The record is a 94-nucleotide sequence from Desemzia incerta, which matches "Group II catalytic intron D1-D4-1" in Rfam. A search with the family's covariance model found it, with a score of 49 bits. The base pairs follow the family's consensus structure. Rfam describes the family as follows. Group II introns are found in rRNA, tRNA and mRNA of organelles in fungi, plants and protists, and also in mRNA in bacteria. Lineage of the source: Bacteria > Bacillota > Lactobacillales > Carnobacteriaceae > Desemzia.
RNA sequence: CAAAUACACUUAGUGAUAAGUGCUUGACUCAUGAGAAGUCAGCCGAGGUCGUAGUAGUGAAGACAGCUAGUGAAAGCUAGAAAGAGCGAAAGAC
Number, nucleotide and partner (000 for none) at each position: 001c026002a025003a000004a000005u000006a000007c022008a021009c020010u019011u018012a017013g000014u000015g000016a000017u012018a011019a010020g009021u008022g007023c000024u000025u002026g001027a000028c000029u000030c000031a000032u000033g000034a000035g000036a000037a000038g000039u046040c045041a000042g000043c000044c000045g040046a039047g000048g094049u093050c092051g000052u000053a000054g000055u000056a000057g087058u086059g000060a000061a000062g000063a000064c000065a000066g000067c000068u079069a078070g000071u000072g000073a000074a000075a000076g000077c000078u069079a068080g000081a000082a000083a000084g000085a000086g058087c057088g000089a000090a000091a000092g050093a049094c048